[Rfam]
RNA sequence: CCCGGGUGCAUUGUAGUUGCAUUGCACUUUUGCGUUCGAUAACACGGUGCAAUACUUCUGCAAUGCAAGCCAGG
Numbered sequence: 001c002c003c004g005g006g007u008g009c010a011u012u013g014u015a016g017u018u019g020c021a022u023u024g025c026a027c028u029u030u031u032g033c034g035u036u037c038g039a040u041a042a043c044a045c046g047g048u049g050c051a052a053u054a055c056u057u058c059u060g061c062a063a064u065g066c067a068a069g070c071c072a073g074g
Stems, first nucleotide, its partner, number of pairs: 001074002004071001006070001007067010019055001021053007
Dot-bracket structure: ((.(.(((((((((((..(.(((((((...................))))))).)..))))))))))..)).))